[Rfam]
RNA: Aar sRNA
Organism: Acinetobacter sp. P8-3-8
RNA sequence: GCUUACGAGAGUUAACACUUAUUUACGUGAAUACCAAUGAAAUUACAGAUGAGAACAUCUACUAUCUACUUAAGUUAUGAAUCUUCCCCAAAAUUCAUAACAUUUCUCCUUAACCGAACUGUGAAAGCAGAUUCGUUGUUCUACGCAAUGAUCACCCCAAUCAUUGCGUAUUUUUUUUGUCUUUGUUUUCA
Numbered sequence: 001g002c003u004u005a006c007g008a009g010a011g012u013u014a015a016c017a018c019u020u021a022u023u024u025a026c027g028u029g030a031a032u033a034c035c036a037a038u039g040a041a042a043u044u045a046c047a048g049a050u051g052a053g054a055a056c057a058u059c060u061a062c063u064a065u066c067u068a069c070u071u072a073a074g075u076u077a078u079g080a081a082u083c084u085u086c087c088c089c090a091a092a093a094u095u096c097a098u099a100a101c102a103u104u105u106c107u108c109c110u111u112a113a114c115c116g117a118a119c120u121g122u123g124a125a126a127g128c129a130g131a132u133u134c135g136u137u138g139u140u141c142u143a144c145g146c147a148a149u150g151a152u153c154a155c156c157c158c159a160a161u162c163a164u165u166g167c168g169u170a171u172u173u174u175u176u177u178u179g180u181c182u183u184u185g186u187u188u189u190c191a
Stems, first nucleotide, its partner, number of pairs: 013051002016048001019045001021043003026039003063191001068186002072182001074180002076099002079096001081094002085092001115135004119130004143169010